Actinobacteria sRNA Ms_IGR-5: a 185-nucleotide sequence from Phycicoccus flavus. It scores 108 bits against the family's covariance model. The source organism's lineage runs through Bacteria, Actinomycetota, Actinomycetes, Intrasporangiaceae and Phycicoccus.
RNA sequence: ACACGUGAAAGGAGGUGGUCCAGAACAUGCAUUCUUCUCGGACUCGUGAGGUGGCUGCUCGCUAGCAGCCUUCGGCCGGACCGGAGUGCCGGCGAAUCCACAGCAGUCACCCGACCCGCAGGUGCCCCGGAGAACGUCCGCCCGGGGAGGGCUCGACACCGAGCCACACCUGCGGGUCGCUGCUG
Numbered sequence: 001a002c003a004c005g006u007g008a009a010a011g012g013a014g015g016u017g018g019u020c021c022a023g024a025a026c027a028u029g030c031a032u033u034c035u036u037c038u039c040g041g042a043c044u045c046g047u048g049a050g051g052u053g054g055c056u057g058c059u060c061g062c063u064a065g066c067a068g069c070c071u072u073c074g075g076c077c078g079g080a081c082c083g084g085a086g087u088g089c090c091g092g093c094g095a096a097u098c099c100a101c102a103g104c105a106g107u108c109a110c111c112c113g114a115c116c117c118g119c120a121g122g123u124g125c126c127c128c129g130g131a132g133a134a135c136g137u138c139c140g141c142c143c144g145g146g147g148a149g150g151g152c153u154c155g156a157c158a159c160c161g162a163g164c165c166a167c168a169c170c171u172g173c174g175g176g177u178c179g180c181u182g183c184u185g
Stems, first nucleotide, its partner, number of pairs: 014059006060094004065089002068087002073083003112179013126146005